U11 spliceosomal RNA: a 127-nucleotide sequence from Sipha flava. Rfam classes the family as a spliceosomal small nuclear RNA.
RNA sequence: AAAAAGGGUGUCUACCGCUUACAUGGUACUUGGGCCACUGGUCCUCGGGGUAUGGCCAUCAAUACAUACUCGACACAUAAUUUUUGAAAUCGCGGGCAGUUGGUCACCAAUGCGUGCCGGCGCCUGC
Number, nucleotide and partner (000 for none) at each position: 001a000002a000003a000004a000005a000006g000007g000008g076009u075010g074011u073012c072013u028014a027015c026016c025017g024018c000019u000020u000021a000022c000023a000024u017025g016026g015027u014028a013029c047030u000031u000032g044033g043034g042035c041036c040037a000038c000039u000040g036041g035042u034043c033044c032045u000046c000047g029048g071049g070050g069051u068052a067053u066054g065055g000056c000057c000058a000059u000060c000061a000062a000063u000064a000065c054066a053067u052068a051069c050070u049071c048072g012073a011074c010075a009076c008077a000078u000079a000080a000081u000082u000083u000084u000085u000086g000087a000088a000089a000090u000091c000092g000093c000094g125095g124096g123097c122098a000099g121100u120101u119102g118103g117104u000105c116106a115107c114108c112109a000110a000111u000112g108113c000114g107115u106116g105117c103118c102119g101120g100121c099122g097123c096124c095125u094126g000127c000

Its family is annotated with mRNA 5'-splice site recognition, U11 snRNP and pre-mRNA 5'-splice site binding in the Gene Ontology. The family has 72 seed sequences and 2,595 matches in Rfam 15.1.